RNA sequence: ACCACCCGUGCGGGAGAGAUCACCGGAGCGGCAGGCGCCCCGGUGGCGCCGAAGGGGCAAAUCCUCCCCGGAACCUCUCAGGCAAAAGGACCGCGCGGGCAGG
Numbered sequence: 001a002c003c004a005c006c007c008g009u010g011c012g013g014g015a016g017a018g019a020u021c022a023c024c025g026g027a028g029c030g031g032c033a034g035g036c037g038c039c040c041c042g043g044u045g046g047c048g049c050c051g052a053a054g055g056g057g058c059a060a061a062u063c064c065u066c067c068c069c070g071g072a073a074c075c076u077c078u079c080a081g082g083c084a085a086a087a088g089g090a091c092c093g094c095g096c097g098g099g100c101a102g103g
Stems, first nucleotide, its partner, number of pairs: 006098008020046007048083003051079002055077003062070001

This 103-nucleotide RNA sequence from Mangrovihabitans endophyticus belongs to the Rfam family "Glycine riboswitch aptamer". It scores 61 bits against the family's covariance model.